[Rfam]
RNA sequence: AGGCGUUCUCAGGGCGGGGCGUAAUUCCCCACCGGUGGUAAUAGUCCACGAGCCGCAGCUUCGGCUGUAGCAGACUCGGUGAAACUCCGGGACCGACGGUAAUAGUCCGGAUGGAAGAGAACCUAG
Numbered sequence: 001a002g003g004c005g006u007u008c009u010c011a012g013g014g015c016g017g018g019g020c021g022u023a024a025u026u027c028c029c030c031a032c033c034g035g036u037g038g039u040a041a042u043a044g045u046c047c048a049c050g051a052g053c054c055g056c057a058g059c060u061u062c063g064g065c066u067g068u069a070g071c072a073g074a075c076u077c078g079g080u081g082a083a084a085c086u087c088c089g090g091g092a093c094c095g096a097c098g099g100u101a102a103u104a105g106u107c108c109g110g111a112u113g114g115a116a117g118a119g120a121a122c123c124u125a126g
Stems, first nucleotide, its partner, number of pairs: 003124001005122006017029003031106002033095002035049004044093002052071002075091005097109003

Record summary: FMN riboswitch aptamer (RFN element): a 126-nucleotide RNA sequence from Corynebacterium sp. TAE3-ERU30. Its family is annotated with FMN binding in the Gene Ontology. A search with the family's covariance model found it, with a score of 109 bits.